[Rfam]
RNA sequence: CCGCCCGUCGCUACUACCGAUUGAACGUUUUAGUGAGGUAUUUGGAUCGGACCUUUGGAGGGAAACCUUCGAUGUUGUCUGAGAAGACUCCCAAACUUGAGCGUUUAGAGGAAGUAAAAGUCGUAACAAGGUUUCCGUAGGUGAACCUGCGGAAGGAUCAUUA
Numbered sequence: 001c002c003g004c005c006c007g008u009c010g011c012u013a014c015u016a017c018c019g020a021u022u023g024a025a026c027g028u029u030u031u032a033g034u035g036a037g038g039u040a041u042u043u044g045g046a047u048c049g050g051a052c053c054u055u056u057g058g059a060g061g062g063a064a065a066c067c068u069u070c071g072a073u074g075u076u077g078u079c080u081g082a083g084a085a086g087a088c089u090c091c092c093a094a095a096c097u098u099g100a101g102c103g104u105u106u107a108g109a110g111g112a113a114g115u116a117a118a119a120g121u122c123g124u125a126a127c128a129a130g131g132u133u134u135c136c137g138u139a140g141g142u143g144a145a146c147c148u149g150c151g152g153a154a155g156g157a158u159c160a161u162u163a
Base pairs, nucleotide, nucleotide: 001130003127006123007122009120012116013115014114015113017111018110021107023106024105025104026103027102028101029100030099032097033096034095037092038091040089042087043086047082048081049080050079051078052077055074058070059069060068061067132155133154134153135152136151137150138149139148140147141146

A member of the RNA family "Eukaryotic small subunit ribosomal RNA" from Tigriopus californicus, 163 nucleotides of a longer RNA. NCBI's taxonomy places the organism under Eukaryota, Arthropoda, Pancrustacea, Copepoda, Tigriopus. The family's consensus secondary structure is taken from published work.